mir-544 microRNA precursor family: a 97-nucleotide RNA from Rhinopithecus roxellana. Taxonomically the source falls in Rhinopithecus (Eukaryota, Teleostomi, Sarcopterygii, Tetrapoda). The match comes from Rfam's covariance-model search (67 bits). A reference for the family is Chiang et al. (2010), "Mammalian microRNAs: experimental evaluation of novel and previously annotated genes", Genes Dev. The family has 16 seed sequences and 10,750 matches in Rfam 15.1.

RNA sequence: ACACGUAGGUAUCUUGUUAAACUGCAGAUUCUAAUUCAGUGGAUCUGGAGUGGGGCCUCAGAAUCUGCAUUUCUAACAAGCUCCCAGGUCAUGCUGA
Numbered sequence: 001a002c003a004c005g006u007a008g009g010u011a012u013c014u015u016g017u018u019a020a021a022c023u024g025c026a027g028a029u030u031c032u033a034a035u036u037c038a039g040u041g042g043a044u045c046u047g048g049a050g051u052g053g054g055g056c057c058u059c060a061g062a063a064u065c066u067g068c069a070u071u072u073c074u075a076a077c078a079a080g081c082u083c084c085c086a087g088g089u090c091a092u093g094c095u096g097a
Stems, first nucleotide, its partner, number of pairs: 003089002008084002013080007020072002024068005030062003
Rfam links the family to the GO terms RISC complex and miRNA-mediated post-transcriptional gene silencing.